[Rfam]
RNA sequence: GACAAACAGUGUGAAAGACACUGUCGCCGAAAGUCCAAGGGUUCCUGCGUAAAGUUAAUCUCCGCAGGGUUAGCCGGCCCCUAAGGCGAGGCCGAAAGGCGUAGUCGAUGGGAACCACGUUAAUAUUCGUGGGCCAGUUGGUGGUGACGGAUCUCGUAUAUUGUUCGACCUUACUGGAUUGGUCGGGCCGUGAAGAGGUUCCAGGAAAUAGCCCCAACAUCAGACCGUACCCUAAACCGACACAGGUGGACUGGUAGAGUAUACCAAGGCGCU
Numbered sequence: 001g002a003c004a005a006a007c008a009g010u011g012u013g014a015a016a017g018a019c020a021c022u023g024u025c026g027c028c029g030a031a032a033g034u035c036c037a038a039g040g041g042u043u044c045c046u047g048c049g050u051a052a053a054g055u056u057a058a059u060c061u062c063c064g065c066a067g068g069g070u071u072a073g074c075c076g077g078c079c080c081c082u083a084a085g086g087c088g089a090g091g092c093c094g095a096a097a098g099g100c101g102u103a104g105u106c107g108a109u110g111g112g113a114a115c116c117a118c119g120u121u122a123a124u125a126u127u128c129g130u131g132g133g134c135c136a137g138u139u140g141g142u143g144g145u146g147a148c149g150g151a152u153c154u155c156g157u158a159u160a161u162u163g164u165u166c167g168a169c170c171u172u173a174c175u176g177g178a179u180u181g182g183u184c185g186g187g188c189c190g191u192g193a194a195g196a197g198g199u200u201c202c203a204g205g206a207a208a209u210a211g212c213c214c215c216a217a218c219a220u221c222a223g224a225c226c227g228u229a230c231c232c233u234a235a236a237c238c239g240a241c242a243c244a245g246g247u248g249g250a251c252u253g254g255u256a257g258a259g260u261a262u263a264c265c266a267a268g269g270c271g272c273u
Base pairs, nucleotide, nucleotide: 006024007023008022009021010020011019025271026270027269028268033251034250035249036248039231040230044068045067046066047065048064049063053061054060075227076226077225080111081110085106086105087104089102091100092099093098115132116131117130118129119128135223137218140215141214143212145210149201150200151199152198153197154196155195237246238245253265254264255263256262